[Rfam]
RNA sequence: AUUACCGUGAGGUGGUGUUUGGAGGAAGCCUAAGUGUAACGAUGUGGGUCGACGAACAGAAAUAUCAUAUAAGGCCGAGUCUCUGGGUAAGGCAGCACAACAUGUUUAAGCCCAAGGAUCAGGAGAUACGGUAAAUGAUGCGAUCGCUCAUCAGAAGUUCACGC
Numbered sequence: 001a002u003u004a005c006c007g008u009g010a011g012g013u014g015g016u017g018u019u020u021g022g023a024g025g026a027a028g029c030c031u032a033a034g035u036g037u038a039a040c041g042a043u044g045u046g047g048g049u050c051g052a053c054g055a056a057c058a059g060a061a062a063u064a065u066c067a068u069a070u071a072a073g074g075c076c077g078a079g080u081c082u083c084u085g086g087g088u089a090a091g092g093c094a095g096c097a098c099a100a101c102a103u104g105u106u107u108a109a110g111c112c113c114a115a116g117g118a119u120c121a122g123g124a125g126a127u128a129c130g131g132u133a134a135a136u137g138a139u140g141c142g143a144u145c146g147c148u149c150a151u152c153a154g155a156a157g158u159u160c161a162c163g164c
Stems, first nucleotide, its partner, number of pairs: 001016006030163001036158002041152004046147001047145005063140006074132003079127006085113004091106004
Dot-bracket structure: ((((((....)))))).............(.....((...((((.((((((...........((((((.....(((..((((((((((..((((........))))...))))........))))))..)))..))))))))))).).))))....))....).

Shown here is a 164-nucleotide RNA, a member of the family "Group II catalytic intron D1-D4-3". A search with the family's covariance model found it, with a score of 108 bits. The base pairs follow the family's consensus structure.